[Rfam]
RNA: Small nucleolar RNA snoR109
Organism: Papaver nudicaule
RNA sequence: UGGUUGUAGCUAACUGGAUGAAAAAGACGUUUACUGGCCGGUUGUUGUGAGAUUUUUCUCAUUAAUCGACACCUGCUUAUGAAACUUCUCACAAAU
Dot-bracket structure: ........................(((.(((....(((.(((.((((...................))))))).))).....))).))).......